[Rfam]
RNA sequence: GGCUUCAACAUCCCCGCCGGUUGGGCAUUGCAAAAUGCAGUGAACCGGCUGAAGCC
Numbered sequence: 001g002g003c004u005u006c007a008a009c010a011u012c013c014c015c016g017c018c019g020g021u022u023g024g025g026c027a028u029u030g031c032a033a034a035a036u037g038c039a040g041u042g043a044a045c046c047g048g049c050u051g052a053a054g055c056c
Base pairs, nucleotide, nucleotide: 001056002055003054004053005052006051007050013042014040016049017048018047019046020045021044022043023041025038026037027036028035029034
Dot-bracket structure: (((((((.....[[.((((((((.(((((....))))).])]))))))))))))))

Shown here is a 56-nucleotide RNA, a member of the family "nadA riboswitch". Rfam's curators put it in the seed alignment. It is annotated as a small RNA.